[Rfam]
RNA sequence: CGCGUCCGCCUCGUGGACGCCGCUGCCCAUCCAAGCCGACUCCCGGCUACUCUGGCGCCGUGCGGCAACCCGGCCGGUCCGGGCCAGCCGCAUAGCCGACAGCCGUCGCACUCCAGGGAGCCCUUACAUG
Numbered sequence: 001c002g003c004g005u006c007c008g009c010c011u012c013g014u015g016g017a018c019g020c021c022g023c024u025g026c027c028c029a030u031c032c033a034a035g036c037c038g039a040c041u042c043c044c045g046g047c048u049a050c051u052c053u054g055g056c057g058c059c060g061u062g063c064g065g066c067a068a069c070c071c072g073g074c075c076g077g078u079c080c081g082g083g084c085c086a087g088c089c090g091c092a093u094a095g096c097c098g099a100c101a102g103c104c105g106u107c108g109c110a111c112u113c114c115a116g117g118g119a120g121c122c123c124u125u126a127c128a129u130g
Stems, first nucleotide, its partner, number of pairs: 061092004069083004095109002098107003
RNA: Streptomyces-metH RNA